[Rfam]
RNA: Metazoan signal recognition particle RNA
RNA sequence: GCUGGGUGUCGUGGCGAGCGCCUGUAAUCCAGCGAGCAGGAGGCCGGGACCGGUGGACGGCUUGAGAAGGAGAGUUCUGGUUGGCGUUGACACAUGUAGACCGAGCGUCCACACCAAGCAUGGCGUCAAUAAGGUCUUCUCGGAGGAGUCCGGGAUGACCUGGUUGAAUAAAGAGGAGCGCACUGGCUCAGGGCCGUAAGGCAGCAGGCAAAAGCACCCGCGUCGUGACAGUGGUGGGAUAGCGCUCGCGAAUGUGUCGCGUCGAUCAGCUUCGUCGAUACAGUCGGACCCGCUCCUUU
Number, nucleotide and partner (000 for none) at each position: 001g044002c043003u042004g023005g022006g021007u020008g019009u018010c000011g000012u000013g000014g000015c000016g000017a000018g009019c008020g007021c006022c005023u004024g000025u000026a000027a000028u041029c040030c039031a000032g000033c000034g000035a000036g000037c000038a000039g030040g029041a028042g003043g002044c001045c000046g297047g296048g295049a294050c000051c292052g291053g290054u000055g000056g000057a000058c286059g285060g284061c283062u282063u000064g000065a000066g276067a275068a000069g273070g272071a271072g270073a000074g000075u000076u000077c269078u268079g267080g266081u265082u264083g263084g262085c261086g260087u259088u000089g257090a000091c256092a255093c254094a253095u252096g000097u250098a000099g000100a000101c000102c248103g247104a246105g245106c244107g243108u242109c238110c237111a000112c236113a235114c234115c233116a232117a000118g229119c227120a226121u225122g224123g223124c222125g221126u220127c166128a165129a164130u163131a000132a161133g160134g159135u158136c157137u000138u155139c154140u153141c152142g151143g150144a149145g000146g000147a000148g000149u144150c143151c142152g141153g140154g139155a138156u000157g136158a135159c134160c133161u132162g000163g130164u129165u128166g127167a000168a000169u000170a000171a000172a000173g000174a000175g218176g217177a000178g215179c214180g000181c000182a000183c000184u211185g000186g209187c208188u207189c000190a000191g000192g000193g202194c201195c200196g000197u000198a000199a000200g195201g194202c193203a000204g000205c000206a000207g188208g187209c186210a000211a184212a000213a000214g179215c178216a000217c176218c175219c000220g126221c125222g124223u123224c122225g121226u120227g119228a000229c118230a000231g000232u116233g115234g114235u113236g112237g110238g109239a000240u000241a000242g108243c107244g106245c105246u104247c103248g102249c000250g097251a000252a095253u094254g093255u092256g091257u089258c000259g087260c086261g085262u084263c083264g082265a081266u080267c079268a078269g077270c072271u071272u070273c069274g000275u067276c066277g000278a000279u000280a000281c000282a062283g061284u060285c059286g058287g000288a000289c000290c053291c052292g051293c000294u049295c048296c047297u046298u000299u000